[Rfam]
RNA sequence: AUCCAGAACGGGAAUGAGGUUCUCCCACGAUUUUUGAUCGAAACCGCCAAAAGGCUGAUGACUUCUGUGCAUGG
Numbered sequence: 001a002u003c004c005a006g007a008a009c010g011g012g013a014a015u016g017a018g019g020u021u022c023u024c025c026c027a028c029g030a031u032u033u034u035u036g037a038u039c040g041a042a043a044c045c046g047c048c049a050a051a052a053g054g055c056u057g058a059u060g061a062c063u064u065c066u067g068u069g070c071a072u073g074g
Base pairs, nucleotide, nucleotide: 010026011025012024013023016065017064018063019062020061021060046055047054048053
Rfam assigns this 74-nucleotide RNA to the family "Fluoride riboswitch aptamer (crcB RNA motif)". Gene Ontology terms of the family: positive regulation of gene expression and response to fluoride.